[Rfam]
RNA sequence: CUAAAACGCCCUAAACCCCACACACGUAUCGGCACGAUGGCCUGGGUGCUCUGCAAGGAGUUGGCCAUUGGGAUGCGUGGAGGCCCAAC
Numbered sequence: 001c002u003a004a005a006a007c008g009c010c011c012u013a014a015a016c017c018c019c020a021c022a023c024a025c026g027u028a029u030c031g032g033c034a035c036g037a038u039g040g041c042c043u044g045g046g047u048g049c050u051c052u053g054c055a056a057g058g059a060g061u062u063g064g065c066c067a068u069u070g071g072g073a074u075g076c077g078u079g080g081a082g083g084c085c086c087a088a089c
Stems, first nucleotide, its partner, number of pairs: 023079008035070008048061005